The record is a 109-nucleotide RNA sequence from Cucumis melo, which matches "Small nucleolar RNA Z152/R70/R12/" in Rfam. Its family is annotated with RNA processing and nucleolus in the Gene Ontology. The base pairs follow the family's consensus structure, which was predicted with PFOLD. For this family Rfam cites "Identification of 66 box C/D snoRNAs in Arabidopsis thaliana: extensive gene duplications generated multiple isoforms predicting new ribosomal RNA 2'-O-methylation sites" (Barneche et al., J Mol Biol, 2001). The source organism's lineage runs through Eukaryota, Mesangiospermae, eudicotyledons, Cucurbitaceae and Cucumis.
[Rfam]
RNA sequence: GAAGCUAUGAUAACAGAAGACAUUGAUUAUUAUGGGCGGUGGACGUAACUUUUAAUUAAGUUAUGUAGUGAGCCUAUAUAAUAAACAACUUCUCAUUCCACUGAGCUUC
Numbered sequence: 001g002a003a004g005c006u007a008u009g010a011u012a013a014c015a016g017a018a019g020a021c022a023u024u025g026a027u028u029a030u031u032a033u034g035g036g037c038g039g040u041g042g043a044c045g046u047a048a049c050u051u052u053u054a055a056u057u058a059a060g061u062u063a064u065g066u067a068g069u070g071a072g073c074c075u076a077u078a079u080a081a082u083a084a085a086c087a088a089c090u091u092c093u094c095a096u097u098c099c100a101c102u103g104a105g106c107u108u109c
Base pairs, nucleotide, nucleotide: 001109002108003107004106005105